[Rfam]
RNA sequence: AUGCGAUGAGUCGAUUAUGGUUUUUAAACAUAUUUGCGCUGGGGGAGAUCAUUAAGGCAGAAAGCCGAUUUUGAUAACUUGUGUGAACCUCGUUAUCACGUUCUAAUAGAAUGUCCCAUAGAGCUGAGAUUUCUCAGCUCUUUUU
Numbered sequence: 001a002u003g004c005g006a007u008g009a010g011u012c013g014a015u016u017a018u019g020g021u022u023u024u025u026a027a028a029c030a031u032a033u034u035u036g037c038g039c040u041g042g043g044g045g046a047g048a049u050c051a052u053u054a055a056g057g058c059a060g061a062a063a064g065c066c067g068a069u070u071u072u073g074a075u076a077a078c079u080u081g082u083g084u085g086a087a088c089c090u091c092g093u094u095a096u097c098a099c100g101u102u103c104u105a106a107u108a109g110a111a112u113g114u115c116c117c118a119u120a121g122a123g124c125u126g127a128g129a130u131u132u133c134u135c136a137g138c139u140c141u142u143u144u145u
Base pairs, nucleotide, nucleotide: 012036013035014034016032017031018030019029021027022026042117043116044115045114046071047070048069049068056066057065058064072098073097074096075095076094077093078092099113100112101111102110121140122139123138124137125136126135127134128133
A member of the RNA family "MarS sRNA" from Streptococcus ictaluri, 145 nucleotides long.
The source organism's lineage runs through Bacteria, Bacilli, Lactobacillales, Streptococcus and Streptococcus ictaluri.
From the family's description: Interacts with the 5'UTR of the mga transcript (the multiple virulence gene regulator gene) and was renamed MarS for mag-activating regulatory sRNA. In MarS deletion strains expression of mga and several Mga-activated genes is reduced. This down-regulation of virulence factors leads to increased susceptibility of the deletion strain to phagocytosis, reduced adherence to human keratinocytes. However, the lack of MarS increased bacterial dissemination and tolerance towards oxidative stress.
Gene Ontology terms of the family: mRNA 5'-UTR binding and positive regulation of translation, ncRNA-mediated.
A reference for the family is Pappesch et al. (2017), "The Regulatory Small RNA MarS Supports Virulence of Streptococcus pyogenes", Sci Rep.
It is annotated as a small RNA.